[Rfam]
RNA sequence: UGACGUCUUCGGGGCGGGGUGCAACUCCCCACCGGCGGUAUGGUCGCAAGACCGAGCCCGCGAGCGCUCCUGCCCUGCGGCAGGGGGUCAGCAGAUCUGGUGAGAGGCCAGGGCCGACGGUAACAGUCCGGAUGAAAGAAGACGACG
Numbered sequence: 001u002g003a004c005g006u007c008u009u010c011g012g013g014g015c016g017g018g019g020u021g022c023a024a025c026u027c028c029c030c031a032c033c034g035g036c037g038g039u040a041u042g043g044u045c046g047c048a049a050g051a052c053c054g055a056g057c058c059c060g061c062g063a064g065c066g067c068u069c070c071u072g073c074c075c076u077g078c079g080g081c082a083g084g085g086g087g088u089c090a091g092c093a094g095a096u097c098u099g100g101u102g103a104g105a106g107g108c109c110a111g112g113g114c115c116g117a118c119g120g121u122a123a124c125a126g127u128c129c130g131g132a133u134g135a136a137a138g139a140a141g142a143c144g145a146c147g
Stems, first nucleotide, its partner, number of pairs: 004144007017029003031127002033116002035061004056114002064092002096112005118130003
Dot-bracket structure: ...(((((((......(((.......))).[[((((((.................[[))))..((.........................))...(((((.......)))))]])).(((.....]]))).......)))))))...